Shown here is a 325-nucleotide RNA sequence from Thermococcus barophilus, a member of the family "Archaeal RNase P". The match comes from Rfam's covariance-model search (219 bits). Rfam's curators write: Ribonuclease P (RNase P) is a ubiquitous endoribonuclease, found in archaea, bacteria and eukarya as well as chloroplasts and mitochondria. Its best characterised activity is the generation of mature 5'-ends of tRNAs by cleaving the 5'-leader elements of precursor-tRNAs. Cellular RNase Ps are ribonucleoproteins. RNA from bacterial RNase Ps retains its catalytic activity in the absence of the protein subunit, i.e. it is a ribozyme. Isolated eukaryotic and archaeal RNase P RNA has not been shown to retain its catalytic function, but is still essential for the catalytic activity of the holoenzyme. Although the archaeal and eukaryotic holoenzymes have a much greater protein content than the bacterial ones, the RNA cores from all the three lineages are homologous -- helices corresponding to P1, P2, P3, P4, and P10/11 are common to all cellular RNase P RNAs. Yet, there is considerable sequence variation, particularly among the eukaryotic RNAs. Its Rfam clan is "RNaseP clan". Taxonomically the source falls in Thermococcus barophilus (Archaea, Methanobacteriota, Thermococci, Thermococcales). Rfam classes the family as a ribozyme.

[Rfam]
RNA sequence: GCGAGAGGGCUGGGAGUUGCCGGGCAGUGAGCCCGAGGAAGUUCCGCCCACCUCACCGGGGCCGCGGUGCCGCAAGGCACCUCCCGAGAGGGAGGGCAACGGCGCAGAAACGACACGUCCUCCGAGGAAUGGGAAUGAAAGCGGCGAAGGCUCCUGGUGACAGGAGCCGAGCUAACCCGCAGACGACCUCGGAGGGAUCGGUGAAACGGCCGUCCCGCGGGGUGCAAGGCCGAAAGAGGGGUGAUGAGUUCCCGGUGUGAGCCCCGUGGUUGGCCGCUUAGUCGAAUGCUCCCUUAAUACAGAAGGCGGGCUAUAGCCCUCUCGC
Numbered sequence: 001g002c003g004a005g006a007g008g009g010c011u012g013g014g015a016g017u018u019g020c021c022g023g024g025c026a027g028u029g030a031g032c033c034c035g036a037g038g039a040a041g042u043u044c045c046g047c048c049c050a051c052c053u054c055a056c057c058g059g060g061g062c063c064g065c066g067g068u069g070c071c072g073c074a075a076g077g078c079a080c081c082u083c084c085c086g087a088g089a090g091g092g093a094g095g096g097c098a099a100c101g102g103c104g105c106a107g108a109a110a111c112g113a114c115a116c117g118u119c120c121u122c123c124g125a126g127g128a129a130u131g132g133g134a135a136u137g138a139a140a141g142c143g144g145c146g147a148a149g150g151c152u153c154c155u156g157g158u159g160a161c162a163g164g165a166g167c168c169g170a171g172c173u174a175a176c177c178c179g180c181a182g183a184c185g186a187c188c189u190c191g192g193a194g195g196g197a198u199c200g201g202u203g204a205a206a207c208g209g210c211c212g213u214c215c216c217g218c219g220g221g222g223u224g225c226a227a228g229g230c231c232g233a234a235a236g237a238g239g240g241g242u243g244a245u246g247a248g249u250u251c252c253c254g255g256u257g258u259g260a261g262c263c264c265c266g267u268g269g270u271u272g273g274c275c276g277c278u279u280a281g282u283c284g285a286a287u288g289c290u291c292c293c294u295u296a297a298u299a300c301a302g303a304a305g306g307c308g309g310g311c312u313a314u315a316g317c318c319c320u321c322u323c324g325c
Stems, first nucleotide, its partner, number of pairs: 001325003005321007012293006021035005040312003044309005049224004054257006062220005067080005081094005095215002100212004116200002119195008141180004228275004238265005